[Rfam]
RNA sequence: AGACCAACCAAUUAAUUUGUUUAUCUGAAUGUGUUCCUGCAGAAAUUUAGAAACAACUGAAGGUAGUGAUGUCAUUUUAUGAGCCUUAAGGAAAACUGAGGUCAUUACAGUCCCUCAAAAUGGCUAUAAUG
Numbered sequence: 001a002g003a004c005c006a007a008c009c010a011a012u013u014a015a016u017u018u019g020u021u022u023a024u025c026u027g028a029a030u031g032u033g034u035u036c037c038u039g040c041a042g043a044a045a046u047u048u049a050g051a052a053a054c055a056a057c058u059g060a061a062g063g064u065a066g067u068g069a070u071g072u073c074a075u076u077u078u079a080u081g082a083g084c085c086u087u088a089a090g091g092a093a094a095a096c097u098g099a100g101g102u103c104a105u106u107a108c109a110g111u112c113c114c115u116c117a118a119a120a121u122g123g124c125u126a127u128a129a130u131g
Stems, first nucleotide, its partner, number of pairs: 005059002016043005071124004083111002087107003091103002
RNA: Small nucleolar RNA SNORA33
Organism: Jaculus jaculus